The record is a 43-nucleotide RNA sequence from Affinibrenneria salicis, which matches "nuoG RNA" in Rfam. Pairs were carried over by alignment from the consensus structure, which is taken from published work.

RNA sequence: GAAUUUUUGAUUAAUGCCCGUGGCGACAUGGGCCAUAUGGAAG
Number, nucleotide and partner (000 for none) at each position: 001g000002a000003a000004u000005u000006u000007u000008u000009g000010a000011u000012u000013a000014a000015u000016g033017c032018c031019c030020g029021u028022g027023g000024c000025g000026a000027c022028a021029u020030g019031g018032g017033c016034c000035a000036u000037a000038u000039g000040g000041a000042a000043g000
Lineage of the source: Bacteria > Pseudomonadati > Pseudomonadota > Enterobacterales > Affinibrenneria.